[Rfam]
RNA sequence: GUUCUCUGCUAGUUUUGCAUAGUUGCAUUACAAGAAUAGAUGAGUUGUGCAAAUCUAUGCAAAACUGAUGGUGGUC
Number, nucleotide and partner (000 for none) at each position: 001g000002u000003u074004c073005u000006c071007u070008g069009c000010u067011a066012g065013u064014u063015u062016u061017g060018c059019a058020u000021a000022g000023u052024u051025g050026c049027a048028u047029u000030a045031c044032a000033a000034g000035a000036a000037u000038a000039g000040a000041u000042g000043a000044g031045u030046u000047g028048u027049g026050c025051a024052a023053a000054u000055c000056u000057a000058u019059g018060c017061a016062a015063a014064a013065c012066u011067g010068a000069u008070g007071g006072u000073g004074g003075u000076c000